A member of the RNA family "Small nucleolar RNA SNORD113/SNORD114 family" from Cervus elaphus, 72 nucleotides long. Clan: SNORD74 clan. Rfam describes the family as follows. The imprinted human domain at 14q32 contains two clusters of tandemly repeated small nucleolar RNAs named 14q(I) and 14q(II) snoRNAs. These two clusters are named SNORD113 and SNORD114 respectively in the HGNC approved gene symbol nomenclature. The snoRNAs found in both clusters are clearly related and are represented here by a single family. These snoRNAs are intron encoded and are processed from the tissue-specific non-coding human MEG8 RNA, which lies downstream of the imprinted genes DLK1 and GTL2. snoRNAs 14q(I) and 14q(II) differ from previously identified C/D box snoRNAs in their expression profiles and lack of complementarity to rRNA and snRNA. Homologues of these snoRNAs are found in the imprinted non-coding mouse transcript Rian, and in the rat non-coding Bsr (brain-specific repetitive) RNA. A reference for the family is Cavaille et al. (2002), "Identification of tandemly-repeated C/D snoRNA genes at the imprinted human 14q32 domain reminiscent of those at the Prader-Willi/Angelman syndrome region", Hum Mol Genet. Rfam links the family to the GO terms nucleolus and RNA processing. Pairs were carried over by alignment from the consensus structure, which is taken from published work.
[Rfam]
RNA sequence: UGGAUCAGUGAUGACUGCUGGUGGGGUGUGAGUCAAGUACAAUGAAUACGUGUCUUGAACUCUGAGGUUCAA
Numbered sequence: 001u002g003g004a005u006c007a008g009u010g011a012u013g014a015c016u017g018c019u020g021g022u023g024g025g026g027u028g029u030g031a032g033u034c035a036a037g038u039a040c041a042a043u044g045a046a047u048a049c050g051u052g053u054c055u056u057g058a059a060c061u062c063u064g065a066g067g068u069u070c071a072a
Base pairs, nucleotide, nucleotide: 002070003069004068005067006066